Shown here is a 79-nucleotide RNA sequence from Medicago truncatula, a member of the family "MIR5269 microRNA precursor family". NCBI's taxonomy places the organism under Eukaryota, Viridiplantae, Spermatophyta, fabids, Medicago.
RNA sequence: UUAAUUUAAAUCAUUAUGUAUUUACACUUUGAAAACAGAAAUCACACAAAGUGGUGAUAGAUACAUUGAUUUCAUCCAA
Numbered sequence: 001u002u003a004a005u006u007u008a009a010a011u012c013a014u015u016a017u018g019u020a021u022u023u024a025c026a027c028u029u030u031g032a033a034a035a036c037a038g039a040a041a042u043c044a045c046a047c048a049a050a051g052u053g054g055u056g057a058u059a060g061a062u063a064c065a066u067u068g069a070u071u072u073c074a075u076c077c078a079a
Stems, first nucleotide, its partner, number of pairs: 001079002006074001008072006015065001017063002022057003025053007

A search with the family's covariance model found it, with a score of 62 bits.